[Rfam]
RNA: mir-9/mir-79 microRNA precursor family
RNA sequence: UUCUUGUUACUUUCGGUUAUCUAGCUUUAUGAAGAUGUACGUCACUCAUACAGCUAGAUAACCAAAGAUAACAGACA
Numbered sequence: 001u002u003c004u005u006g007u008u009a010c011u012u013u014c015g016g017u018u019a020u021c022u023a024g025c026u027u028u029a030u031g032a033a034g035a036u037g038u039a040c041g042u043c044a045c046u047c048a049u050a051c052a053g054c055u056a057g058a059u060a061a062c063c064a065a066a067g068a069u070a071a072c073a074g075a076c077a
Base pairs, nucleotide, nucleotide: 001077004074005073007071008070009069011067012066013065015063016062017061018060019059020058021057022056023055024054025053026052028050029049030048031047032046